This 136-nucleotide RNA from Dissostichus mawsoni belongs to the Rfam family "Small nucleolar RNA SNORA5". ACA5 is a member of the H/ACA class of snoRNA that guide the sites of modification of uridines to pseudouridines.
RNA sequence: UGAAGCCUUGUCAAAUUCAGUGCUUCCUCCUCUGUGGAUGCCACUGGCCAAAUGGCUGCCACAGUGAAGCUGUAUUUCAUGGGCCCCACGGUGCUUCAUCACGGCCCCUGGGGAUAAAAAUGUACUACACACAGAC
Numbered sequence: 001u002g003a004a005g006c007c008u009u010g011u012c013a014a015a016u017u018c019a020g021u022g023c024u025u026c027c028u029c030c031u032c033u034g035u036g037g038a039u040g041c042c043a044c045u046g047g048c049c050a051a052a053u054g055g056c057u058g059c060c061a062c063a064g065u066g067a068a069g070c071u072g073u074a075u076u077u078c079a080u081g082g083g084c085c086c087c088a089c090g091g092u093g094c095u096u097c098a099u100c101a102c103g104g105c106c107c108c109u110g111g112g113g114a115u116a117a118a119a120a121u122g123u124a125c126u127a128c129a130c131a132c133a134g135a136c
Base pairs, nucleotide, nucleotide: 002059004057005056018046019045020044021043022042023040025038026037027036072128073127074126076124077122084113085112086111090108

Lineage of the source: Eukaryota > Euteleostomi > Neoteleostei > Percomorphaceae > Dissostichus.
The family's consensus secondary structure was predicted with RNAfold.